[Rfam]
RNA sequence: AGAACCUUUAAGAACAGUCCAGAGAGGCUGAGAAGGAAACGGUGCAGAAAAGGCAUACUUAUAGCCUUUUUGAAGAAAUAUGUCUAAAACCAAAUCCUCUUGCCUCAAGGCAAGAGGAUUUUUUUAU
Dot-bracket structure: ....(((((.....(((((......))))).)))))........(.((((((((.........)))))))))...................(((((((((((((....)))))))))))))......

The family of this 127-nucleotide sequence from Priestia megaterium is "PyrR binding site". This family represents the PyrR binding site and terminator structure. This RNA structure is found upstream of a variety of genes involved in pyrimidine biosynthesis and transport. The alignment also includes a portion of the antiterminator structure. The literature on the family includes a 2001 paper in Nucleic Acids Res by Bonner et al., "Molecular recognition of pyr mRNA by the Bacillus subtilis attenuation regulatory protein PyrR". Pairs were carried over by alignment from the consensus structure, which is taken from published work. Rfam classes the family as a cis-regulatory element.